[Rfam]
RNA sequence: UAGGAAGCUAGCGGAAACACCUCUCACAGUCUGGAUUCUGGAUCCAGUGUGCGGAAAUGCUUCCGCUACGUUUCUA
Numbered sequence: 001u002a003g004g005a006a007g008c009u010a011g012c013g014g015a016a017a018c019a020c021c022u023c024u025c026a027c028a029g030u031c032u033g034g035a036u037u038c039u040g041g042a043u044c045c046a047g048u049g050u051g052c053g054g055a056a057a058u059g060c061u062u063c064c065g066c067u068a069c070g071u072u073u074c075u076a
Stems, first nucleotide, its partner, number of pairs: 001076002004073003009068008018059002022055003025051004031047002
mir-147 microRNA precursor family: a 76-nucleotide sequence from Myotis davidii. The match comes from Rfam's covariance-model search (59 bits). Gene Ontology terms of the family: miRNA-mediated post-transcriptional gene silencing and RISC complex. A reference for the family is Kawaji et al. (2008), "Hidden layers of human small RNAs", BMC Genomics.